[Rfam]
RNA sequence: GGGCGUCUUACCAGACACGGUUAGAUCUGCGUCCUUCUGUCUAAUACUGUCUGGUAAUGCCGUCCAU
Numbered sequence: 001g002g003g004c005g006u007c008u009u010a011c012c013a014g015a016c017a018c019g020g021u022u023a024g025a026u027c028u029g030c031g032u033c034c035u036u037c038u039g040u041c042u043a044a045u046a047c048u049g050u051c052u053g054g055u056a057a058u059g060c061c062g063u064c065c066a067u
Stems, first nucleotide, its partner, number of pairs: 001065005007059001008057010020045006